[Rfam]
Record summary
mir-26 microRNA precursor family: an 81-nucleotide RNA sequence from Mus musculus. The base pairs follow the family's consensus structure, which was predicted with RNAalifold. The literature on the family includes a 2001 paper in Science by Lagos-Quintana et al., "Identification of novel genes coding for small expressed RNAs". Gene Ontology terms of the family: RISC complex and miRNA-mediated post-transcriptional gene silencing.
RNA sequence: CCGUGGCCUCGUUCAAGUAAUCCAGGAUAGGCUGUGCAGGUCCCAAGGGGCCUAUUCUUGGUUACUUGCACGGGGACGCGG
Number, nucleotide and partner (000 for none) at each position: 001c000002c080003g079004u078005g077006g000007c075008c074009u073010c072011g071012u070013u000014c068015a067016a066017g065018u064019a063020a062021u061022c060023c000024a058025g057026g056027a055028u054029a053030g052031g051032c050033u049034g000035u000036g000037c000038a000039g000040g000041u000042c000043c000044c000045a000046a000047g000048g000049g033050g032051c031052c030053u029054a028055u027056u026057c025058u024059u000060g022061g021062u020063u019064a018065c017066u016067u015068g014069c000070a012071c011072g010073g009074g008075g007076a000077c005078g004079c003080g002081g000
Taxonomically the source falls in Mus (Eukaryota, Bilateria, Rodentia, Murinae).